[Rfam]
RNA sequence: CCGUACAGCCCUCCUUGGGCGUUUCCUCCCUAGACUUGGGCCGCUUGCGCGCUGCGUAAGCGGCCUCUUUCUUUUGUACC
Numbered sequence: 001c002c003g004u005a006c007a008g009c010c011c012u013c014c015u016u017g018g019g020c021g022u023u024u025c026c027u028c029c030c031u032a033g034a035c036u037u038g039g040g041c042c043g044c045u046u047g048c049g050c051g052c053u054g055c056g057u058a059a060g061c062g063g064c065c066u067c068u069u070u071c072u073u074u075u076g077u078a079c080c
Base pairs, nucleotide, nucleotide: 008020009019010018011017039065040064041063042062043061044060045059046058047057048056049055
RNA: Makes More Granules Regulator RNA (mmgR)